[Rfam]
RNA sequence: AACUUUUUGAUUCCGUGCUGAGAUUUUGUCAGACACCAACCUAUUAGGACUGAUCCGACUUCCAAGAUAAGUGAAGUU
Dot-bracket structure: .(((((.(...((..((..(((.((..(((.....................)))..))))).)).))...).))))).
Shown here is a 78-nucleotide RNA sequence from Schistosoma bovis, a member of the family "mir-3492 microRNA precursor family". Rfam 15.1 lists 21,496 matches to the family in 13 species. The match comes from Rfam's covariance-model search (50 bits). NCBI's taxonomy places the organism under Eukaryota, Metazoa, Spiralia, Trematoda, Schistosoma.